Source information:
TPP riboswitch aptamer (THI element): a 109-nucleotide sequence from Amycolatopsis endophytica. Rfam links the family to the GO term thiamine pyrophosphate binding. The base pairs follow the family's consensus structure, which is taken from published work. The source organism's lineage runs through Bacteria, Bacillati, Actinomycetota, Pseudonocardiales and Amycolatopsis. About the family: Vitamin B(1) in its active form thiamin pyrophosphate (TPP) is an essential coenzyme that is synthesised by coupling of pyrimidine and thiazole moieties in bacteria. The previously detected thiamin-regulatory element, thi box was extended, resulting in a new, highly conserved RNA secondary structure, the THI element, which is widely distributed in eubacteria and also occurs in some archaea. Analysis of operon structures identified a large number of new candidate thiamin-regulated genes, mostly transporters, in various prokaryotic organisms. The THI element is a riboswitch that directly binds to TPP to regulate gene expression through a variety of mechanisms in archaea, bacteria and eukaryotes. through a variety of mechanisms in archaea, bacteria and eukaryotes.

RNA sequence: CACGGUUGCCACGGGAGUCCGGUGAUCCGGGCUGAGAGGCGGGUUCGUCCCGCGACCGUCCGCACCUGAUCCGGAUCAUGCCGGCGCAGGGAGGCCCGACCUUUCUCGC
Number, nucleotide and partner (000 for none) at each position: 001c000002a000003c000004g000005g000006u000007u000008g095009c094010c093011a059012c058013g057014g056015g000016a000017g032018u031019c030020c029021g028022g000023u000024g000025a000026u000027c000028c021029g020030g019031g018032c017033u000034g000035a000036g000037a000038g000039g053040c052041g051042g050043g049044u000045u000046c000047g000048u000049c043050c042051c041052g040053c039054g000055a000056c014057c013058g012059u011060c000061c000062g000063c000064a000065c090066c089067u088068g087069a000070u000071c084072c083073g082074g081075a000076u000077c000078a000079u000080g000081c074082c073083g072084g071085c000086g000087c068088a067089g066090g065091g000092a000093g010094g009095c008096c000097c000098g000099a000100c000101c000102u000103u000104u000105c000106u000107c000108g000109c000